[Rfam]
RNA sequence: GCGCUUGGCGAAUUCGCAUGCCCUAUCUUGUGGUAUGAACUGAGCACACGAUAAUUUAUGGUGCGUAUUGGGGGCUUACAAUAAGAUAAUGCCGUGAAUUUGCUAAGCGU
Numbered sequence: 001g002c003g004c005u006u007g008g009c010g011a012a013u014u015c016g017c018a019u020g021c022c023c024u025a026u027c028u029u030g031u032g033g034u035a036u037g038a039a040c041u042g043a044g045c046a047c048a049c050g051a052u053a054a055u056u057u058a059u060g061g062u063g064c065g066u067a068u069u070g071g072g073g074g075c076u077u078a079c080a081a082u083a084a085g086a087u088a089a090u091g092c093c094g095u096g097a098a099u100u101u102g103c104u105a106a107g108c109g110u
Stems, first nucleotide, its partner, number of pairs: 002109015020092002024088008033079003037075001040072002043069002046066001049063002
Dot-bracket structure: .(((((((((((((((...((..((((((((.(((.(..((.((.(..((...........))..).)).))..).))).))))))))..))..))))))))))))))).
RNA: MIR1428 microRNA precursor family
Organism: Oryza sativa